RNA: Glycine riboswitch aptamer
Nucleotides: 112
Base pairs, nucleotide, nucleotide: 007106009104010103011102012101013100020048021047023045024044025043026042027041050092051091052090053088054087057086058085059084063079064078
Number, partner (000 for none) and nucleotide at each position: 001000c002000a003000u004000c005000g006000a007106c008000g009104c010103u011102c012101u013100g014000g015000a016000a017000a018000g019000c020048g021047g022000c023045g024044g025043c026042g027041c028000a029000u030000g031000u032000c033000u034000c035000g036000g037000g038000c039000a040000g041027g042026c043025g044024c045023c046000u047021c048020c049000c050092a051091c052090c053088g054087a055000a056000g057086g058085g059084g060000u061000a062000a063079c064078c065000c066000g067000c068000g069000c070000g071000u072000g073000c074000g075000c076000g077000g078064g079063g080000a081000a082000a083000g084059c085058u086057c087054u088053c089000a090052g091051g092050u093000c094000c095000c096000g097000u098000g099000a100013c101012a102011g103010a104009g105000g106007g107000g108000g109000a110000a111000a112000c